Rfam assigns this 91-nucleotide RNA from Actinacidiphila reveromycinica to the family "ZMP/ZTP riboswitch aptamer (pfl RNA motif)". The match comes from Rfam's covariance-model search (52 bits).
RNA sequence: CCCGGGAGCCGUGACUGGCGUGCUGGGAUGGGUGCAACCAUCGGGAAGCGGCUCGAGCUGGACGCAAGUGCCGUACGCCUGGGCCGCCCCG
Numbered sequence: 001c002c003c004g005g006g007a008g009c010c011g012u013g014a015c016u017g018g019c020g021u022g023c024u025g026g027g028a029u030g031g032g033u034g035c036a037a038c039c040a041u042c043g044g045g046a047a048g049c050g051g052c053u054c055g056a057g058c059u060g061g062a063c064g065c066a067a068g069u070g071c072c073g074u075a076c077g078c079c080u081g082g083g084c085c086g087c088c089c090c091g
Base pairs, nucleotide, nucleotide: 003057006054007053008052009051010050011049012048015045016044017079018078019077020076021075028041029040030039031038070084071083072082